[Rfam]
RNA sequence: CAAAACAAAGCAAGCAGGAAGGAUAGACGAAGUGAGAAGGCUGUACGCAAGUGACAUGGUGGUCAGGCUGUGAGAACAGACAGAGCGUAUGAAUGAUAAGCAUGGUCUACCGAAGUAGUCAAAGAAAACAGGAAUGGCAGGGCAAGAAAGCACAGUGUACCGCACUAAUUUGGAGAAAGCGGACAGGCUGAACCAAUCAGCACUUUACCCCUAAACCAAGAAGCCAUUAAGUGGAAGAAUUGACCGAGCGAGAUGACACAGCACUUUGUUUCA
Numbered sequence: 001c002a003a004a005a006c007a008a009a010g011c012a013a014g015c016a017g018g019a020a021g022g023a024u025a026g027a028c029g030a031a032g033u034g035a036g037a038a039g040g041c042u043g044u045a046c047g048c049a050a051g052u053g054a055c056a057u058g059g060u061g062g063u064c065a066g067g068c069u070g071u072g073a074g075a076a077c078a079g080a081c082a083g084a085g086c087g088u089a090u091g092a093a094u095g096a097u098a099a100g101c102a103u104g105g106u107c108u109a110c111c112g113a114a115g116u117a118g119u120c121a122a123a124g125a126a127a128a129c130a131g132g133a134a135u136g137g138c139a140g141g142g143c144a145a146g147a148a149a150g151c152a153c154a155g156u157g158u159a160c161c162g163c164a165c166u167a168a169u170u171u172g173g174a175g176a177a178a179g180c181g182g183a184c185a186g187g188c189u190g191a192a193c194c195a196a197u198c199a200g201c202a203c204u205u206u207a208c209c210c211c212u213a214a215a216c217c218a219a220g221a222a223g224c225c226a227u228u229a230a231g232u233g234g235a236a237g238a239a240u241u242g243a244c245c246g247a248g249c250g251a252g253a254u255g256a257c258a259c260a261g262c263a264c265u266u267u268g269u270u271u272c273a
Stems, first nucleotide, its partner, number of pairs: 003271008024109005043090006052065004068079004118244005128232002133228006139212004147206004156185003160182004187201005
RNA: RAGATH-8 RNA